[Rfam]
A member of the RNA family "Group II catalytic intron D1-D4-6", 219 nucleotides long.
On this family, see Bonen and Vogel, Trends Genet 2001: "The ins and outs of group II introns".
Group II introns are found in rRNA, tRNA and mRNA of organelles in fungi, plants and protists, and also in mRNA in bacteria.
Pairs were carried over by alignment from the consensus structure.
Nucleotides: 219
Base pairs, nucleotide, nucleotide: 012037013036014035015034016033020031021030022029024188026186027185041089042088045086046085047084048083049081050080051076052075053074054073055072057070058069059068060067061066112210113209114208115207116206117205132204133203134202135201136200137199138164139163140162143158144157145156146155169198170197172196173195174194175193176192177191178190179189
Number, partner (000 for none) and nucleotide at each position: 001000a002000g003000a004000g005000u006000c007000c008000u009000g010000u011000c012037u013036g014035g015034c016033c017000a018000a019000a020031g021030c022029c023000g024188u025000a026186g027185c028000g029022g030021g031020c032000a033016g034015g035014c036013c037012a038000g039000g040000a041089c042088c043000g044000a045086g046085u047084c048083u049081u050080g051076c052075a053074g054073g055072c056000g057070c058069u059068g060067c061066g062000g063000u064000a065000a066061c067060g068059c069058a070057g071000g072055g073054u074053c075052u076051g077000a078000a079000g080050c081049g082000u083048a084047g085046a086045c087000a088042g089041g090000g091000g092000u093000c094000g095000u096000g097000c098000a099000g100000g101000g102000u103000g104000c105000g106000g107000a108000g109000u110000a111000a112210g113209c114208c115207c116206c117205g118000a119000a120000a121000a122000g123000c124000u125000g126000a127000a128000u129000c130000u131000c132204g133203u134202g135201g136200a137199g138164g139163c140162c141000g142000a143158a144157u145156g146155g147000g148000u149000u150000c151000c152000c153000g154000u155146c156145c157144a158143u159000g160000a161000a162140g163139g164138c165000a166000g167000c168000a169198u170197g171000u172196g173195c174194a175193u176192c177191a178190u179189c180000g181000u182000u183000a184000c185027g186026c187000g188024a189179g190178a191177u192176g193175a194174u195173g196172u197170u198169g199137c200136u201135c202134c203133a204132c205117c206116g207115g208114g209113g210112u211000c212000g213000u214000g215000g216000a217000c218000c219000g